[Rfam]
ZMP/ZTP riboswitch aptamer (pfl RNA motif): an 85-nucleotide RNA from Schaalia zhouxuedongae. The match comes from Rfam's covariance-model search (50 bits).
RNA sequence: GCCUAUGGUCGUAACUGGCGAGGGUGGAUGACCACCGGGAAGCGACGAAUAAUUCCCAUAGGCGCCGCCCGCCUGGGUGCCUGGG
Numbered sequence: 001g002c003c004u005a006u007g008g009u010c011g012u013a014a015c016u017g018g019c020g021a022g023g024g025u026g027g028a029u030g031a032c033c034a035c036c037g038g039g040a041a042g043c044g045a046c047g048a049a050u051a052a053u054u055c056c057c058a059u060a061g062g063c064g065c066c067g068c069c070c071g072c073c074u075g076g077g078u079g080c081c082u083g084g085g
Base pairs, nucleotide, nucleotide: 006048008046009045010044011043012042015039016038017073018072019071020070024035025034026033027032062080063079064078065077066076